A member of the RNA family "SAM-I/IV (S-adenosyl methionine) riboswitch aptamer" from Pseudohalioglobus lutimaris, 104 nucleotides long. Its Rfam clan is "SAM clan". The literature on the family includes a 2008 paper in RNA by Weinberg et al., "The aptamer core of SAM-IV riboswitches mimics the ligand-binding site of SAM-I riboswitches". The family has 417 seed sequences and 567 matches in Rfam 15.1.
[Rfam]
RNA sequence: UUCAAGCAUCAAGAGUGAGCCUGAGCUCCGCCAACCUGCCUGACCUGGGCAAGGUGGUUAACUCGAUAGAGUGAUGCGGCCGACCGGCAACCAAGCAGGUUCUC
Numbered sequence: 001u002u003c004a005a006g007c008a009u010c011a012a013g014a015g016u017g018a019g020c021c022u023g024a025g026c027u028c029c030g031c032c033a034a035c036c037u038g039c040c041u042g043a044c045c046u047g048g049g050c051a052a053g054g055u056g057g058u059u060a061a062c063u064c065g066a067u068a069g070a071g072u073g074a075u076g077c078g079g080c081c082g083a084c085c086g087g088c089a090a091c092c093a094a095g096c097a098g099g100u101u102c103u104c
Stems, first nucleotide, its partner, number of pairs: 006077005015029001017028004030058003035054003038050003042100001044098001079088003